RNA sequence: GCCUCCGUAGCUCAGGGGAUAGAGCGACCCUCUCCUAAAGGGUAGGCCGCAGGUUCGAUUCCUGCCGGGGGCA
Numbered sequence: 001g002c003c004u005c006c007g008u009a010g011c012u013c014a015g016g017g018g019a020u021a022g023a024g025c026g027a028c029c030c031u032c033u034c035c036u037a038a039a040g041g042g043u044a045g046g047c048c049g050c051a052g053g054u055u056c057g058a059u060u061c062c063u064g065c066c067g068g069g070g071g072c073a
Stems, first nucleotide, its partner, number of pairs: 001072007010025004027043005049065005
RNA: tRNA